[Rfam]
RNA sequence: GGUCAGUGAUGUGAUGUAAAAGGUCUGAACCUCAAGUCCUGCCCGUCGGCCAUUUUAGCUCCCAGCAGCCCUUGCUCUGUGCUCCCAUCAUGCUCUAGUGGUGCAUUGGUGGUCCCAGCAGCUGCUGACAGACAGGAUGUGACAUCACAGCGUGGGCCUGUACAGAGCUCCUGCAGGGCCACAGUGAUUGACAUCCCACAGAACCAAUCAGCACGGAGCGUCAGGCUGAGGGGGCGGGGCCUGAGUGCUGAUCUCACUCUUCUACUGAGACC
Dot-bracket structure: ((((..............................((..(..(((.((((.........(((((((((((...............((((((..(.........)...))))))........))))))).......((((((............(((.((((((.........)))))).))).........))))))..................)))).......))))))).................)..))..............))))